Notes:
Shown here is a 109-nucleotide RNA sequence from Sorghum bicolor, a member of the family "MIR5565 microRNA precursor family". The family's consensus secondary structure was predicted with RNAalifold.
[Rfam]
RNA sequence: GUAGUCAGAUUCACAUUAAUCCACAUGUAUCGGGGUGGGUUGGAGUGGAAUUUGAACUAAAUUCCACCCCAAUCUACUUCAACACAUGUGGAUUGAGGUGAAUCCGACA
Numbered sequence: 001g002u003a004g005u006c007a008g009a010u011u012c013a014c015a016u017u018a019a020u021c022c023a024c025a026u027g028u029a030u031c032g033g034g035g036u037g038g039g040u041u042g043g044a045g046u047g048g049a050a051u052u053u054g055a056a057c058u059a060a061a062u063u064c065c066a067c068c069c070c071a072a073u074c075u076a077c078u079u080c081a082a083c084a085c086a087u088g089u090g091g092a093u094u095g096a097g098g099u100g101a102a103u104c105c106g107a108c109a
Stems, first nucleotide, its partner, number of pairs: 004108003008104007016096013030082001032080001035077009045067003